[Rfam]
RNA sequence: GGAGUUGGCCAGGUCAUCGCUGCCUGUCUCUCACGCAAGUGAGUUGGCAAGUGGAGGAAAGUCCGGGCUCCAUAGGGCAAGGCGCCAGGUAAUCCCUGGGGGGCGUGAGCCUACGGAAAGUGCAGCAGAGAGUAAACCGCCUACGUGACCGCUAAUUGGUAUAAUUAUCGGUUGCCGGUAAGGGUGAAAGGGUGCGGUAAGAGCGCACCGCGUCGGUGGCAACAUUCGAUGGCAUGGUAAACCCCGUCUGGAGCAAGACCAAAUAGAGGGACAUUAGGCGUGGCCCACGCUGUCCCCGGGUAGGUCGCUUGAGCGUUAUGGUGACAUAACGCCUAGAUGAAUGAUGAUCCACGACAGAACCCGGCUUAUGGCCAACUCCUUUU
Numbered sequence: 001g002g003a004g005u006u007g008g009c010c011a012g013g014u015c016a017u018c019g020c021u022g023c024c025u026g027u028c029u030c031u032c033a034c035g036c037a038a039g040u041g042a043g044u045u046g047g048c049a050a051g052u053g054g055a056g057g058a059a060a061g062u063c064c065g066g067g068c069u070c071c072a073u074a075g076g077g078c079a080a081g082g083c084g085c086c087a088g089g090u091a092a093u094c095c096c097u098g099g100g101g102g103g104c105g106u107g108a109g110c111c112u113a114c115g116g117a118a119a120g121u122g123c124a125g126c127a128g129a130g131a132g133u134a135a136a137c138c139g140c141c142u143a144c145g146u147g148a149c150c151g152c153u154a155a156u157u158g159g160u161a162u163a164a165u166u167a168u169c170g171g172u173u174g175c176c177g178g179u180a181a182g183g184g185u186g187a188a189a190g191g192g193u194g195c196g197g198u199a200a201g202a203g204c205g206c207a208c209c210g211c212g213u214c215g216g217u218g219g220c221a222a223c224a225u226u227c228g229a230u231g232g233c234a235u236g237g238u239a240a241a242c243c244c245c246g247u248c249u250g251g252a253g254c255a256a257g258a259c260c261a262a263a264u265a266g267a268g269g270g271a272c273a274u275u276a277g278g279c280g281u282g283g284c285c286c287a288c289g290c291u292g293u294c295c296c297c298g299g300g301u302a303g304g305u306c307g308c309u310u311g312a313g314c315g316u317u318a319u320g321g322u323g324a325c326a327u328a329a330c331g332c333c334u335a336g337a338u339g340a341a342u343g344a345u346g347a348u349c350c351a352c353g354a355c356a357g358a359a360c361c362c363g364g365c366u367u368a369u370g371g372c373c374a375a376c377u378c379c380u381u382u383u
Base pairs, nucleotide, nucleotide: 001379002378003377004376005375006374007373008372009371010370011369012349013348014347015346016345017344018343020054021053022052023051025049026048027047028046059367060366061365063364064363065362066361067360068253069252070251071250075286076285077284078283080249081248082247083246084245085099086098087097088096089095100114101112102111103110104109115244116243120242121241122238123237137183138182139179140178141177145176148173191209192208193207194206195205196204210233211231212230213229214228215227216225217224218223257306258305259304260303268296269295270294271293272292277291278290279289280288281287313332314331315330316329317328318327319326320325
Dot-bracket structure: ((((((((((((((((((.((((.((((.................)))).))))....[[[.[[[[[((((...[[[[.((((((((((.....)))))(((((....)))).)((...((((.............(((((...(..(........................)..))))..)).......((((((.......))))))(((((((((....))).))))).)...))..)))))))))))))...((((.......(((((....(((((.]]]]))))))))))......))))......((((((((....))))))))..........)))))))..........]]]]]]]].)))))))))))....
The record is a 383-nucleotide RNA from Granulosicoccus antarcticus, which matches "Bacterial RNase P class A" in Rfam.
It scores 322 bits against the family's covariance model.
Rfam links the family to the GO terms ribonuclease P activity, tRNA processing and dimeric ribonuclease P complex.
Rfam classes the family as a ribozyme.
Pairs were carried over by alignment from the consensus structure, which is taken from published work.